[Rfam]
A member of the RNA family "Archaeal RNase P" from Halococcus hamelinensis, 412 nucleotides long.
Gene Ontology terms of the family: tRNA processing, ribonuclease P activity and multimeric ribonuclease P complex.
About the family: Ribonuclease P (RNase P) is a ubiquitous endoribonuclease, found in archaea, bacteria and eukarya as well as chloroplasts and mitochondria.
Rfam classes the family as a ribozyme.
Lineage of the source: Archaea > Halobacteria > Halobacteriales > Halococcaceae > Halococcus hamelinensis.
The match comes from Rfam's covariance-model search (107 bits).
Nucleotides: 412
Base pairs, nucleotide, nucleotide: 001412002411003410005408006407007406008405009404010402011401012381013380014379015378016377017376021062022061023060024059067399068398069397071396072395073394074393075392076310077309078308079307088306089305090304091303092302093107094106095105096104097103108121109120110119111118112117122301123300127297129295143285144284146280147279148278149277150276151275152274164242165241314363315362316361317360318359319358320357321356322355
Number, partner (000 for none) and nucleotide at each position: 001412g002411g003410c004000a005408g006407a007406g008405a009404g010402a011401g012381c013380u014379c015378g016377g017376c018000c019000a020000c021062c022061g023060c024059g025000g026000c027000g028000g029000g030000c031000c032000g033000g034000c035000g036000c037000g038000g039000a040000c041000u042000c043000g044000u045000c046000g047000c048000g049000c050000c051000g052000g053000c054000c055000c056000g057000c058000a059024c060023g061022c062021g063000a064000g065000g066000a067399a068398c069397g070000u071396c072395c073394c074393c075392c076310c077309a078308c079307c080000g081000c082000c083000g084000g085000g086000c087000g088306g089305g090304c091303g092302a093107c094106c095105g096104g097103g098000g099000c100000g101000a102000c103097c104096c105095c106094g107093g108121g109120g110119c111118g112117g113000g114000a115000g116000a117112c118111c119110g120109u121108c122301g123300g124000c125000u126000c127297u128000g129295g130000a131000a132000c133000a134000g135000c136000a137000a138000c139000g140000a141000g142000a143285c144284c145000c146280c147279u148278c149277c150276a151275c152274c153000c154000g155000a156000c157000c158000g159000a160000u161000g162000a163000g164242g165241u166000g167000c168000g169000g170000g171000a172000g173000g174000g175000a176000c177000a178000u179000c180000c181000c182000u183000c184000c185000u186000g187000c188000u189000c190000g191000c192000g193000a194000a195000c196000c197000c198000c199000g200000c201000g202000c203000a204000g205000a206000a207000g208000g209000c210000a211000g212000c213000c214000g215000c216000c217000g218000a219000g220000a221000a222000a223000g224000c225000a226000a227000c228000g229000g230000g231000g232000a233000g234000u235000u236000g237000a238000c239000c240000a241165a242164c243000c244000g245000a246000g247000g248000a249000u250000c251000g252000u253000g254000c255000g256000g257000c258000g259000a260000c261000c262000g263000a264000c265000g266000c267000c268000g269000c270000c271000g272000a273000c274152g275151g276150u277149g278148g279147a280146g281000a282000a283000c284144g285143g286000a287000u288000g289000g290000a291000a292000c293000g294000g295129c296000g297127a298000a299000u300123c301122c302092u303091c304090g305089c306088c307079g308078g309077u310076g311000c312000a313000a314363g315362u316361c317360c318359g319358c320357g321356c322355c323000a324000c325000g326000c327000g328000g329000c330000a331000c332000g333000c334000g335000c336000c337000g338000c339000a340000c341000g342000g343000u344000a345000g346000c347000c348000c349000g350000g351000c352000a353000g354000g355322g356321g357320c358319g359318c360317g361316g362315a363314c364000g365000c366000a367000u368000a369000g370000c371000c372000g373000a374000a375000u376017g377016c378015c379014g380013g381012g382000a383000c384000g385000a386000a387000c388000a389000g390000a391000a392075g393074g394073g395072g396071g397069c398068g399067u400000a401011c402010u403000c404009c405008u406007c407006u408005c409000a410003g411002c412001c